[Rfam]
RNA: ASpks TB sRNA
Organism: Streptomyces sp. Ag109_G2-6
RNA sequence: CUUCACCGAGCCCAGCCACAGCGGCUCGCGGCCGGUGCGCUCCUGCCCGUAGGUGGCGAGGAGGGCCUGGGCCUC
Numbered sequence: 001c002u003u004c005a006c007c008g009a010g011c012c013c014a015g016c017c018a019c020a021g022c023g024g025c026u027c028g029c030g031g032c033c034g035g036u037g038c039g040c041u042c043c044u045g046c047c048c049g050u051a052g053g054u055g056g057c058g059a060g061g062a063g064g065g066c067c068u069g070g071g072c073c074u075c
Stems, first nucleotide, its partner, number of pairs: 014026004032070002038065001043060002047056003